RNA sequence: AACCCUUUAAUGGAGUCCUGAGAGGCUUACAAAGGGGAUGAAGCUUUCACAAUGGUUUAUACUAUGUGAUAGCUCAUACCUCUUUGUGUAAUCACAAAGAGUUUUUUUAU
Number, nucleotide and partner (000 for none) at each position: 001a000002a000003c036004c035005c034006u033007u032008u031009a000010a000011u000012g000013g028014a027015g026016u025017c024018c000019u000020g000021a000022g000023a000024g017025g016026c015027u014028u013029a000030c000031a008032a007033a006034g005035g004036g003037g000038a000039u000040g000041a000042a000043g073044c072045u071046u000047u069048c068049a067050c066051a065052a000053u064054g063055g062056u061057u000058u000059a000060u000061a056062c055063u054064a053065u051066g050067u049068g048069a047070u000071a045072g044073c043074u000075c000076a105077u000078a103079c000080c101081u100082c099083u098084u097085u096086g095087u094088g093089u000090a000091a000092u000093c088094a087095c086096a085097a084098a083099g082100a081101g080102u000103u078104u000105u076106u000107u000108u000109a000110u000
PyrR binding site: a 110-nucleotide RNA sequence from Bacillus salinus. For this family Rfam cites "Molecular recognition of pyr mRNA by the Bacillus subtilis attenuation regulatory protein PyrR" (Bonner et al., Nucleic Acids Res, 2001). Rfam's curators write: This family represents the PyrR binding site and terminator structure. Pairs were carried over by alignment from the consensus structure, which is taken from published work. The family's RNA type in Rfam is cis-regulatory element. NCBI's taxonomy places the organism under Bacteria, Bacillota, Bacilli, Caryophanales, Bacillus.